[Rfam]
RNA sequence: GGAGUCGGCCAGACAGUCGCGGCACCGUUCGCGGUGCCGAGGAAAGUCCGGGCUCCACAGGGCACGAUGCCAGGUAACGCCUGGGCGGCGCGAGUCGACGGAUAGCGCAACAGAAAGAUACCGCCGAACGGCCUUCGGGCGCGUGGCAAGGGUGAAAUGGUGUGGUAAGAGCGCACCGCGAGUCGGGCAACCGACCGGCACGGCAAACCCCAUCGGGAGCAAGACCAAAUAGGGAACCAUCGGCGCGGCCCGCGUCGGUUCCGGGUAGGUUGCUUGAGCCGUCCAGCGAUGGGCGGCCUAGAGGAAUGACUGUCCACGACAGAACCCGGCUUAUCGGCCGGCUCCGCAC
Numbered sequence: 001g002g003a004g005u006c007g008g009c010c011a012g013a014c015a016g017u018c019g020c021g022g023c024a025c026c027g028u029u030c031g032c033g034g035u036g037c038c039g040a041g042g043a044a045a046g047u048c049c050g051g052g053c054u055c056c057a058c059a060g061g062g063c064a065c066g067a068u069g070c071c072a073g074g075u076a077a078c079g080c081c082u083g084g085g086c087g088g089c090g091c092g093a094g095u096c097g098a099c100g101g102a103u104a105g106c107g108c109a110a111c112a113g114a115a116a117g118a119u120a121c122c123g124c125c126g127a128a129c130g131g132c133c134u135u136c137g138g139g140c141g142c143g144u145g146g147c148a149a150g151g152g153u154g155a156a157a158u159g160g161u162g163u164g165g166u167a168a169g170a171g172c173g174c175a176c177c178g179c180g181a182g183u184c185g186g187g188c189a190a191c192c193g194a195c196c197g198g199c200a201c202g203g204c205a206a207a208c209c210c211c212a213u214c215g216g217g218a219g220c221a222a223g224a225c226c227a228a229a230u231a232g233g234g235a236a237c238c239a240u241c242g243g244c245g246c247g248g249c250c251c252g253c254g255u256c257g258g259u260u261c262c263g264g265g266u267a268g269g270u271u272g273c274u275u276g277a278g279c280c281g282u283c284c285a286g287c288g289a290u291g292g293g294c295g296g297c298c299u300a301g302a303g304g305a306a307u308g309a310c311u312g313u314c315c316a317c318g319a320c321a322g323a324a325c326c327c328g329g330c331u332u333a334u335c336g337g338c339c340g341g342c343u344c345c346g347c348a349c
Stems, first nucleotide, its partner, number of pairs: 001345010011334001012314007020039008044332003048329005053219004060251004065215005070084005085099001086097004100210002105208001107204002121151002123147003128144003131140003159177006178199001179197002182195005223271004233262006242256005278297008

Rfam assigns this 349-nucleotide RNA from Solilutibacter silvestris to the family "Bacterial RNase P class A". Taxonomically the source falls in Solilutibacter (Bacteria, Pseudomonadati, Gammaproteobacteria, Lysobacterales). By type it is a ribozyme.